A member of the RNA family "STnc490 Hfq binding RNA" from Tatumella morbirosei, 124 nucleotides long. Pairs were carried over by alignment from the consensus structure, which was predicted with WAR. Lineage of the source: Bacteria > Pseudomonadota > Gammaproteobacteria > Erwiniaceae > Tatumella. By type it is a small RNA. Rfam 15.1 lists 285 matches to the family in 122 species.
[Rfam]
RNA sequence: AACCCUCAGCCAGGCUGGGGGUUCCGUAAAGCUUUCAGCUUUGGGCCGUAUAUAAAAAAACCUUUUGAUUUGUUAAAACACCUUGCGUUCUGGCAACGGUAAAGGUUCAACAGGAAAUCAAAAG
Dot-bracket structure: ((((((((((...))))))))))....((((((...))))))...................(((((((((((((..(((.(.((((..(......)..)))).)))).))))...)))))))))